[Rfam]
Plastid-psbN 5UTR RNA: a 56-nucleotide sequence from Paspalum vaginatum. From the family's description: Plastid psbN is a non-coding RNA (ncRNA) recognised in plastids. It was reported as a conserved 11 stem-loop in the prime untranslated region (5UTR) of psbN genes. It has been reported that the motif is retained in a subset of mature transcripts in barley, which can suggests a possible role in transcript alternative 5 prime processing. The family's RNA type in Rfam is cis-regulatory element. A reference for the family is Richter et al. (2023), "Retrograde signaling in plants: A critical review focusing on the GUN pathway and beyond", Plant Commun. The base pairs follow the family's consensus structure, which was predicted with LocARNA.
RNA sequence: UGCGACCCCCAUAAGUAGUCCCCCAACCUGGAGCUACUUUCCCAUAUUCCGAAUUC
Numbered sequence: 001u002g003c004g005a006c007c008c009c010c011a012u013a014a015g016u017a018g019u020c021c022c023c024c025a026a027c028c029u030g031g032a033g034c035u036a037c038u039u040u041c042c043c044a045u046a047u048u049c050c051g052a053a054u055u056c
Stems, first nucleotide, its partner, number of pairs: 013039007021031002